RNA sequence: UCGAGCGGCUCUCGCCGCUCGUCUACCCGGGUACCUGAUACGGCCCGAGAGA
Dot-bracket structure: .((((((((....)))))))).((.(.(((((..........))))).))).
Numbered sequence: 001u002c003g004a005g006c007g008g009c010u011c012u013c014g015c016c017g018c019u020c021g022u023c024u025a026c027c028c029g030g031g032u033a034c035c036u037g038a039u040a041c042g043g044c045c046c047g048a049g050a051g052a
Stems, first nucleotide, its partner, number of pairs: 002021008023051002026049001028047005

Shown here is a 52-nucleotide RNA from Nocardioides cavernaquae, a member of the family "L17-Actino-Proteobacteria ribosomal protein leader".
The organism belongs to Nocardioides, within Bacteria.
For this family Rfam cites "Discovery of 20 novel ribosomal leader candidates in bacteria and archaea" (Eckert and Weinberg, BMC Microbiol, 2020).